[Rfam]
RNA sequence: AAAAAGGGUCGGUUGGCUAAUUAUGCCACGCUAACCCUCCUAUAUGGUUGGUGCUGUAUGGCUAUCAAGACAUAUGGCCGGCAUAAUUUGUGGAAUUUCCAUAGGGUUGGCUCGCUUGUCGACCCUUCAAU
Dot-bracket structure: .......(((((.((((.......))))((((((((.........))))))))(((((((..........))))))))))))..................(..(((((.(.(.....).)))))).)....
Numbered sequence: 001a002a003a004a005a006g007g008g009u010c011g012g013u014u015g016g017c018u019a020a021u022u023a024u025g026c027c028a029c030g031c032u033a034a035c036c037c038u039c040c041u042a043u044a045u046g047g048u049u050g051g052u053g054c055u056g057u058a059u060g061g062c063u064a065u066c067a068a069g070a071c072a073u074a075u076g077g078c079c080g081g082c083a084u085a086a087u088u089u090g091u092g093g094a095a096u097u098u099c100c101a102u103a104g105g106g107u108u109g110g111c112u113c114g115c116u117u118g119u120c121g122a123c124c125c126u127u128c129a130a131u
Stems, first nucleotide, its partner, number of pairs: 008082005014028004029053008054077007101127001104125005110120001112118001